A member of the RNA family "MIR473 microRNA precursor family" from Tetracentron sinense, 78 nucleotides long. It scores 63 bits against the family's covariance model. For this family Rfam cites "Identification of grapevine microRNAs and their targets using high-throughput sequencing and degradome analysis" (Pantaleo et al., Plant J, 2010). The source organism's lineage runs through Eukaryota, Mesangiospermae, Trochodendrales, Trochodendraceae and Tetracentron. Its family is annotated with RISC complex and miRNA-mediated post-transcriptional gene silencing in the Gene Ontology. The base pairs follow the family's consensus structure, which was predicted with WAR.
RNA sequence: AUUGCUUACUCUCCCUCAAAGGCUUCCGGCAUUGCCUACAGGGCAUGGCUGAAGUCUUUUGGGGAGAGUGGACAAAAG
Numbered sequence: 001a002u003u004g005c006u007u008a009c010u011c012u013c014c015c016u017c018a019a020a021g022g023c024u025u026c027c028g029g030c031a032u033u034g035c036c037u038a039c040a041g042g043g044c045a046u047g048g049c050u051g052a053a054g055u056c057u058u059u060u061g062g063g064g065a066g067a068g069u070g071g072a073c074a075a076a077a078g
Base pairs, nucleotide, nucleotide: 006071007070008069009068010067011066012065013064014063015062018059019058020057021056022055023054024053025052026051
Dot-bracket structure: .....((((((((((..(((((((((........................)))))))))..)))))))))).......